[Rfam]
RNA sequence: CCCGGUACCUCGGGGGGCCGGCAGACACCGGCUGAGAUGCGGUUGGACCGCGGACCCGUUGAACCUGAACCGGUUAGGACCGGCGGAGGGAAGGUGACAGGAUGAUCC
Numbered sequence: 001c002c003c004g005g006u007a008c009c010u011c012g013g014g015g016g017g018c019c020g021g022c023a024g025a026c027a028c029c030g031g032c033u034g035a036g037a038u039g040c041g042g043u044u045g046g047a048c049c050g051c052g053g054a055c056c057c058g059u060u061g062a063a064c065c066u067g068a069a070c071c072g073g074u075u076a077g078g079a080c081c082g083g084c085g086g087a088g089g090g091a092a093g094g095u096g097a098c099a100g101g102a103u104g105a106u107c108c
Base pairs, nucleotide, nucleotide: 006096007095008094009093010092011058012057013056014055017032018031019030020029021028039051040050041049042048043047064089065088066087070083071082072081073080